[Rfam]
RNA sequence: AUGCAUGCGGUAGCAAUGUUGCCACACUUCCUCUUUCCCUUGUCAAUGAGAUUGUGGAAGACAAAAUUAAGCAUGCUAGAGAAAAGCUCAUGGAGUUAUCAGGGCCACCAGUCUCUCAAGAACAGACUGGAUUGGUAGUAUAAUACUCCAACACCG
Numbered sequence: 001a002u003g004c005a006u007g008c009g010g011u012a013g014c015a016a017u018g019u020u021g022c023c024a025c026a027c028u029u030c031c032u033c034u035u036u037c038c039c040u041u042g043u044c045a046a047u048g049a050g051a052u053u054g055u056g057g058a059a060g061a062c063a064a065a066a067u068u069a070a071g072c073a074u075g076c077u078a079g080a081g082a083a084a085a086g087c088u089c090a091u092g093g094a095g096u097u098a099u100c101a102g103g104g105c106c107a108c109c110a111g112u113c114u115c116u117c118a119a120g121a122a123c124a125g126a127c128u129g130g131a132u133u134g135g136u137a138g139u140a141u142a143a144u145a146c147u148c149c150a151a152c153a154c155c156g
Stems, first nucleotide, its partner, number of pairs: 003076006019060002022057005092149004104136002109129006
The family of this 156-nucleotide RNA from Danio rerio is "Small nucleolar RNA U109". A search with the family's covariance model found it, with a score of 55 bits. Gene Ontology terms of the family: RNA processing and nucleolus. The base pairs follow the family's consensus structure, which was predicted with WAR. On this family, see Gu et al., Nucleic Acids Res 2005: "A novel experimental approach for systematic identification of box H/ACA snoRNAs from eukaryotes".